[Rfam]
RNA sequence: UCAGGGACGAUGAAGAAAGAGAGGUCCUCAGAGCUGCAGGAAUAGGAACACCAAGGAAUGCGAAUGCUCUGAUUUCUCCUCUAGCACUGGAGGUGGAUAUUUUGGCUUGGUGUGUUCCUGAUGCUCCUAUUCCUAUGGUUCUUAGGUGCUCCUUCCUUUUCCCUUUCGCA
Dot-bracket structure: ........((.((.(((...(((..(((.((((((..((((((((((.((..(.(((((((..................................................))))))))..)).))))))))))..)))))).)))..))).))).)).)).........
Numbered sequence: 001u002c003a004g005g006g007a008c009g010a011u012g013a014a015g016a017a018a019g020a021g022a023g024g025u026c027c028u029c030a031g032a033g034c035u036g037c038a039g040g041a042a043u044a045g046g047a048a049c050a051c052c053a054a055g056g057a058a059u060g061c062g063a064a065u066g067c068u069c070u071g072a073u074u075u076c077u078c079c080u081c082u083a084g085c086a087c088u089g090g091a092g093g094u095g096g097a098u099a100u101u102u103u104g105g106c107u108u109g110g111u112g113u114g115u116u117c118c119u120g121a122u123g124c125u126c127c128u129a130u131u132c133c134u135a136u137g138g139u140u141c142u143u144a145g146g147u148g149c150u151c152c153u154u155c156c157u158u159u160u161c162c163c164u165u166u167c168g169c170a
Stems, first nucleotide, its partner, number of pairs: 009161002012158002015155003021151003026146003030142006038134010049123002053119001055118007

The family of this 170-nucleotide sequence from Setaria italica is "MIR2118 microRNA precursor family". It scores 126 bits against the family's covariance model. The family's consensus secondary structure was predicted with RNAalifold. The source organism's lineage runs through Eukaryota, Streptophyta, Euphyllophyta, Poaceae and Setaria.